[Rfam]
RNA sequence: AAAGUUUGACAGACAAUCGCUGGCAGCCUCGUUGCUGCGAGAGGAAAGUCCGGGCUCCACAGGGCAGGAUGCUGGAUAACGUCCAGUCAGCGCGAGCUGAAGGAUAGUGCCACAGAAAUGGACCGCCGAUGGCCCCGUAAAGGGGCACAGGCAAGGGUGGAACCGUGGUGUAAGAGACCACGAGGAGUACAGGUGACUGUAUUCCUGGUAAACCCCAUCUGGAGCAAGACCGAGAGGAUGUGGCGGCCGCAAGGCCGCAGCCUUAGCCCGAGGCGCAUCCGGGUUGGUUGCUUGAGCUGUUCAGCAAUGGACGGCCUAGAUAGAUGAUUGUCGCUUCCUAGUGGGAGGGUCGUUCCCGUUUGCACCACCAGAAGUACAGAACCCGGCUUACGGCAAACUUUCCGC
Numbered sequence: 001a002a003a004g005u006u007u008g009a010c011a012g013a014c015a016a017u018c019g020c021u022g023g024c025a026g027c028c029u030c031g032u033u034g035c036u037g038c039g040a041g042a043g044g045a046a047a048g049u050c051c052g053g054g055c056u057c058c059a060c061a062g063g064g065c066a067g068g069a070u071g072c073u074g075g076a077u078a079a080c081g082u083c084c085a086g087u088c089a090g091c092g093c094g095a096g097c098u099g100a101a102g103g104a105u106a107g108u109g110c111c112a113c114a115g116a117a118a119u120g121g122a123c124c125g126c127c128g129a130u131g132g133c134c135c136c137g138u139a140a141a142g143g144g145g146c147a148c149a150g151g152c153a154a155g156g157g158u159g160g161a162a163c164c165g166u167g168g169u170g171u172a173a174g175a176g177a178c179c180a181c182g183a184g185g186a187g188u189a190c191a192g193g194u195g196a197c198u199g200u201a202u203u204c205c206u207g208g209u210a211a212a213c214c215c216c217a218u219c220u221g222g223a224g225c226a227a228g229a230c231c232g233a234g235a236g237g238a239u240g241u242g243g244c245g246g247c248c249g250c251a252a253g254g255c256c257g258c259a260g261c262c263u264u265a266g267c268c269c270g271a272g273g274c275g276c277a278u279c280c281g282g283g284u285u286g287g288u289u290g291c292u293u294g295a296g297c298u299g300u301u302c303a304g305c306a307a308u309g310g311a312c313g314g315c316c317u318a319g320a321u322a323g324a325u326g327a328u329u330g331u332c333g334c335u336u337c338c339u340a341g342u343g344g345g346a347g348g349g350u351c352g353u354u355c356c357c358g359u360u361u362g363c364a365c366c367a368c369c370a371g372a373a374g375u376a377c378a379g380a381a382c383c384c385g386g387c388u389u390a391c392g393g394c395a396a397a398c399u400u401u402c403c404g405c
Stems, first nucleotide, its partner, number of pairs: 001401008010392001012332007020041002023038005046389003050386005055224004062269004067220005072086005087101001088099004102215002107213002109209003123156002125152003130147002133144003164182006184205009228289004236280006260274005296315008
RNA: Bacterial RNase P class A
Organism: Paenibacillus oryzae